[Rfam]
Nucleotides: 557
Base pairs, nucleotide, nucleotide: 009025010024011023012022013021027547028546029545030544032543033542034541035540036539037538039416040415041414042413043412044411045409046408047374052372053371054370056369057368058367061116062115063114066113067112073106074105075104076103077102078101079100080099081098123327124326125325132252133251134250135249136248137247138246139245142244143243147240148239149238150237151236152235153234155189156188157187158186163180165178166177167176168175169174195220196219197218198217201214203212204211205210225232226231253299254298255297260290261289262288265287266286267285268284269283270282271281272280302324303323304322305321306317307316308315309314329350330349331348332347333346352363353362354361355360380406382405383404384403388401389400390399391398392397419449420448421447422446429440430439431438432437454484455483456482457481458480459479463474491536492535493534494533495532502531503530504529505528506527512519513518
Number, partner (000 for none) and nucleotide at each position: 001000u002000u003000u004000a005000u006000u007000a008000a009025g010024a011023g012022u013021u014000u015000g016000a017000u018000c019000c020000u021013g022012g023011c024010u025009c026000a027547g028546g029545a030544u031000g032543a033542a034541c035540g036539c037538u038000g039416g040415c041414g042413g043412c044411g045409u046408g047374c048000c049000u050000a051000a052372u053371a054370c055000a056369u057368g058367c059000a060000a061116g062115u063114c064000g065000a066113g067112c068000g069000a070000g071000a072000a073106g074105c075104u076103u077102g078101g079100a080099a081098a082000u083000g084000a085000c086000g087000c088000u089000u090000c091000g092000g093000u094000u095000g096000a097000u098081u099080u100079u101078c102077c103076a104075a105074g106073c107000g108000g109000a110000c111000a112067g113066c114063g115062g116061c117000g118000g119000a120000c121000g122000g123327g124326u125325g126000a127000g128000u129000a130000a131000c132252g133251c134250g135249u136248a137247g138246g139245c140000a141000a142244c143243c144000u145000g146000c147240c148239c149238c150237u151236g152235a153234c154000a155189g156188a157187g158186g159000g160000a161000u162000a163180g164000c165178c166177a167176u168175u169174g170000g171000a172000a173000a174169c175168g176167a177166u178165g179000a180163u181000u182000a183000a184000a185000a186158c187157c188156u189155c190000a191000u192000g193000a194000c195220a196219c197218c198217g199000u200000a201214g202000u203212a204211g205210c206000a207000c208000a209000u210205g211204u212203u213000a214201c215000a216000u217198c218197g219196g220195u221000c222000a223000a224000a225232g226231a227000u228000u229000u230000a231226u232225c233000g234153g235152u236151c237150a238149g239148g240147g241000a242000u243143g244142g245139g246138c247137c248136u249135g250134c251133g252132u253299c254298u255297g256000a257000u258000u259000a260290a261289c262288u263000g264000g265287u266286u267285g268284g269283u270282g271281a272280g273000g274000u275000a276000a277000c278000g279000g280272c281271u282270c283269a284268c285267c286266a287265a288262g289261g290260u291000g292000a293000c294000g295000a296000u297255c298254a299253g300000u301000a302324g303323c304322c305321g306317a307316c308315c309314u310000g311000a312000g313000a314309g315308g316307g317306u318000g319000a320000u321305c322304g323303g324302c325125c326124a327123c328000a329350u330349u331348g332347g333346a334000a335000c336000u337000g338000a339000g340000a341000c342000a343000c344000g345000g346333u347332c348331c349330a350329a351000a352363c353362u354361u355360c356000u357000a358000c359000g360355g361354a362353a363352g364000g365000c366000a367058g368057c369056a370054g371053u372052a373000g374047g375000g376000a377000a378000u379000c380406u381000u382405g383404c384403a385000c386000a387000a388401u389400g390399g391398g392397c393000g394000a395000a396000a397392g398391c399390c400389u401388g402000a403384u404383g405382c406380a407000g408046c409045a410000a411044c412043g413042c414041c415040g416039c417000g418000u419449g420448a421447a422446g423000g424000a425000u426000g427000a428000a429440g430439g431438c432437c433000u434000u435000c436000g437432g438431g439430u440429u441000g442000u443000a444000a445000a446422c447421u448420u449419c450000u451000g452000u453000u454484c455483u456482a457481a458480g459479g460000g461000a462000a463474g464000a465000a466000a467000g468000a469000a470000a471000u472000g473000a474463c475000g476000g477000u478000a479459c480458c481457u482456u483455a484454g485000g486000a487000g488000c489000a490000a491536g492535c493534c494533c495532c496000g497000g498000c499000u500000a501000a502531c503530u504529a505528c506527g507000u508000g509000c510000c511000a512519g513518c514000a515000g516000c517000c518513g519512c520000g521000g522000u523000a524000a525000u526000a527506c528505g529504u530503a531502g532495g533494g534493g535492g536491c537000a538037a539036g540035c541034g542033u543032u544030a545029u546028c547027c548000g549000g550000a551000a552000u553000u554000a555000u556000u557000g